[Rfam]
RNA sequence: GCCUUUUCGUGUUCACUGUGGAAGCCUUGGUCAUUAAAAAGUAUUAAGGCACGCGGUGAAUGCCAAGGGGA
Numbered sequence: 001g002c003c004u005u006u007u008c009g010u011g012u013u014c015a016c017u018g019u020g021g022a023a024g025c026c027u028u029g030g031u032c033a034u035u036a037a038a039a040a041g042u043a044u045u046a047a048g049g050c051a052c053g054c055g056g057u058g059a060a061u062g063c064c065a066a067g068g069g070g071a
Stems, first nucleotide, its partner, number of pairs: 003069004009063008018054003025049007